RNA sequence: GGUCUCCUACUUUGGGGUGAUCGAUCAUGGGGCUCCAUGAUUGAUCACCCUGCAGAGGGAGGCC
Numbered sequence: 001g002g003u004c005u006c007c008u009a010c011u012u013u014g015g016g017g018u019g020a021u022c023g024a025u026c027a028u029g030g031g032g033c034u035c036c037a038u039g040a041u042u043g044a045u046c047a048c049c050c051u052g053c054a055g056a057g058g059g060a061g062g063c064c
Stems, first nucleotide, its partner, number of pairs: 001064008010055002013052018
mir-9242 microRNA precursor family: a 64-nucleotide RNA sequence from Myotis lucifugus. The source organism's lineage runs through Eukaryota, Amniota, Theria, Vespertilionidae and Myotis. Its family is annotated with RISC complex and miRNA-mediated post-transcriptional gene silencing in the Gene Ontology. Pairs were carried over by alignment from the consensus structure, which was predicted with RNAalifold.